Shown here is an 86-nucleotide RNA from Chiloscyllium punctatum, a member of the family "Selenocysteine transfer RNA". The family's consensus secondary structure is taken from published work. Its Rfam clan is "tRNA clan". A search with the family's covariance model found it, with a score of 52 bits. The literature on the family includes a 1997 paper in Nucleic Acids Res by Lowe and Eddy, "tRNAscan-SE: a program for improved detection of transfer RNA genes in genomic sequence". The organism belongs to Chiloscyllium, within Eukaryota.

[Rfam]
RNA sequence: UCCUGGCUGACUCCCAGUGGUCUUGGAUGCAAGCUUCAAACCUGCUGCUGUCUAGCAACAGAGUGGUUCAAUUCCACCUUCCAGGU
Numbered sequence: 001u002c003c004u005g006g007c008u009g010a011c012u013c014c015c016a017g018u019g020g021u022c023u024u025g026g027a028u029g030c031a032a033g034c035u036u037c038a039a040a041c042c043u044g045c046u047g048c049u050g051u052c053u054a055g056c057a058a059c060a061g062a063g064u065g066g067u068u069c070a071a072u073u074c075c076a077c078c079u080u081c082c083a084g085g086u
Base pairs, nucleotide, nucleotide: 002085003084004083005082006081009078012027013026014025016023017022029045030044031043033041048061049060050059051058063077064076065075066074